[Rfam]
Shown here is a 154-nucleotide RNA sequence from Amborella trichopoda, a member of the family "MIR8565 microRNA precursor family". Its family is annotated with miRNA-mediated post-transcriptional gene silencing and RISC complex in the Gene Ontology. The family's consensus secondary structure was predicted with RNAalifold.

RNA sequence: CCCACAUUCAUAUGUGUAGGACUCCAAAGGAUCACUAUUAAAUUUGACACAGAUCUAUAGAAAGGUUAUCACAUGGGUGUGAGACUUGAUUUUUCUAGAGAUUUGUACCAAAUUUAAUAGUGAUCCUUUGGGAUCCUACACACAUGGGUGUGGG
Numbered sequence: 001c002c003c004a005c006a007u008u009c010a011u012a013u014g015u016g017u018a019g020g021a022c023u024c025c026a027a028a029g030g031a032u033c034a035c036u037a038u039u040a041a042a043u044u045u046g047a048c049a050c051a052g053a054u055c056u057a058u059a060g061a062a063a064g065g066u067u068a069u070c071a072c073a074u075g076g077g078u079g080u081g082a083g084a085c086u087u088g089a090u091u092u093u094u095c096u097a098g099a100g101a102u103u104u105g106u107a108c109c110a111a112a113u114u115u116a117a118u119a120g121u122g123a124u125c126c127u128u129u130g131g132g133a134u135c136c137u138a139c140a141c142a143c144a145u146g147g148g149u150g151u152g153g154g
Stems, first nucleotide, its partner, number of pairs: 002153010013142001015140007023132006030125003034121013049106008058097011069082005